[Rfam]
RNA sequence: GGCGUGAUGCUGGGGUGCCUCCUCACUGGGGGCUGAGAUCAAACCCAUCGAACCUGAACCGGGUCGCGCCGGCGGAGGGAGUCGUCACGGCGGUUGUC
Numbered sequence: 001g002g003c004g005u006g007a008u009g010c011u012g013g014g015g016u017g018c019c020u021c022c023u024c025a026c027u028g029g030g031g032g033c034u035g036a037g038a039u040c041a042a043a044c045c046c047a048u049c050g051a052a053c054c055u056g057a058a059c060c061g062g063g064u065c066g067c068g069c070c071g072g073c074g075g076a077g078g079g080a081g082u083c084g085u086c087a088c089g090g091c092g093g094u095u096g097u098c
Stems, first nucleotide, its partner, number of pairs: 006086004011047004016041001017033005053078003059072004
Shown here is a 98-nucleotide RNA sequence from Thalassobaculum litoreum, a member of the family "TPP riboswitch aptamer (THI element)". Rfam's curators write: Vitamin B(1) in its active form thiamin pyrophosphate (TPP) is an essential coenzyme that is synthesised by coupling of pyrimidine and thiazole moieties in bacteria. The literature on the family includes a 2006 paper in Nature by Serganov et al., "Structural basis for gene regulation by a thiamine pyrophosphate-sensing riboswitch". Rfam links the family to the GO term thiamine pyrophosphate binding.